[Rfam]
RNA sequence: CUCUUAUCAAGAGAGGUGGAGGGAAGUGCCCUAUGAAGCCCGGCAACCAUCAACACUGUUGAAAUGGUGCCAAUUCACACGAAGCGUUCAGCUUUGAAAGAUGAGAG
Numbered sequence: 001c002u003c004u005u006a007u008c009a010a011g012a013g014a015g016g017u018g019g020a021g022g023g024a025a026g027u028g029c030c031c032u033a034u035g036a037a038g039c040c041c042g043g044c045a046a047c048c049a050u051c052a053a054c055a056c057u058g059u060u061g062a063a064a065u066g067g068u069g070c071c072a073a074u075u076c077a078c079a080c081g082a083a084g085c086g087u088u089c090a091g092c093u094u095u096g097a098a099a100g101a102u103g104a105g106a107g
Stems, first nucleotide, its partner, number of pairs: 001107008013041001015040003021031003026078003042071004047067002050062003075099001080096006
Notes: Shown here is a 107-nucleotide RNA from Bacillus subtilis, a member of the family "SAM riboswitch aptamer (S box leader)". It is one of the family's seed sequences.